[Rfam]
RNA sequence: UGCGGCCGGGAACGCCGUGGCAGUCGAUCAUCGCAUGCUGCCGCCGUUGAAUGCCCGCCGUG
Numbered sequence: 001u002g003c004g005g006c007c008g009g010g011a012a013c014g015c016c017g018u019g020g021c022a023g024u025c026g027a028u029c030a031u032c033g034c035a036u037g038c039u040g041c042c043g044c045c046g047u048u049g050a051a052u053g054c055c056c057g058c059c060g061u062g
Stems, first nucleotide, its partner, number of pairs: 001062006014047002017044008025033002